[Rfam]
RNA sequence: CUGGGGUUCCACCCCCAAGGCUCCCGGCCCGACCCCGGUACCUGACACGGCCGGAGCGG
Numbered sequence: 001c002u003g004g005g006g007u008u009c010c011a012c013c014c015c016c017a018a019g020g021c022u023c024c025c026g027g028c029c030c031g032a033c034c035c036c037g038g039u040a041c042c043u044g045a046c047a048c049g050g051c052c053g054g055a056g057c058g059g
Stems, first nucleotide, its partner, number of pairs: 001027006008020002029059003033056001035054005